Annotation
Rfam assigns this 131-nucleotide sequence from Tripterygium wilfordii to the family "Small nucleolar RNA snoR77". It scores 104 bits against the family's covariance model.

RNA sequence: AGGCAGCCACUUUGCAGUAGUAAAUUGGGCAAGGUGGUGUUGAACUGCUCGUAUAUUGAAUUUACUUGGGCUCUUCAGACUAGCUGAGAGAUUGAUUUCCUUGAAGCUGGUCUAGUAAGCCCAAGUACAAC
Numbered sequence: 001a002g003g004c005a006g007c008c009a010c011u012u013u014g015c016a017g018u019a020g021u022a023a024a025u026u027g028g029g030c031a032a033g034g035u036g037g038u039g040u041u042g043a044a045c046u047g048c049u050c051g052u053a054u055a056u057u058g059a060a061u062u063u064a065c066u067u068g069g070g071c072u073c074u075u076c077a078g079a080c081u082a083g084c085u086g087a088g089a090g091a092u093u094g095a096u097u098u099c100c101u102u103g104a105a106g107c108u109g110g111u112c113u114a115g116u117a118a119g120c121c122c123a124a125g126u127a128c129a130a131c
Stems, first nucleotide, its partner, number of pairs: 002041004007037009065125003070120003077113005083107003088099003